[Rfam]
RNA sequence: AGAGGCCCUCCGCGGCUGGGGCAGAAUGCUUGCCUCAUUGCCAUGGAAACGAAGCAAGUAUUCUGCCAGGCUGCUCACACUGCCUGC
Number, nucleotide and partner (000 for none) at each position: 001a000002g000003a000004g084005g083006c082007c000008c000009u000010c000011c000012g074013c073014g072015g071016c070017u069018g000019g000020g067021g066022c065023a064024g063025a062026a061027u060028g059029c058030u057031u056032g055033c054034c000035u000036c000037a000038u049039u048040g000041c046042c000043a000044u000045g000046g041047a000048a039049a038050c000051g000052a000053a000054g033055c032056a031057a030058g029059u028060a027061u026062u025063c024064u023065g022066c021067c020068a000069g017070g016071c015072u014073g013074c012075u000076c000077a000078c000079a000080c000081u000082g006083c005084c004085u000086g000087c000
Notes:
Shown here is an 87-nucleotide RNA sequence from Myotis brandtii, a member of the family "mir-9195 microRNA precursor family". It scores 92 bits against the family's covariance model. Pairs were carried over by alignment from the consensus structure, which was predicted with RNAalifold. Gene Ontology terms of the family: RISC complex and miRNA-mediated post-transcriptional gene silencing.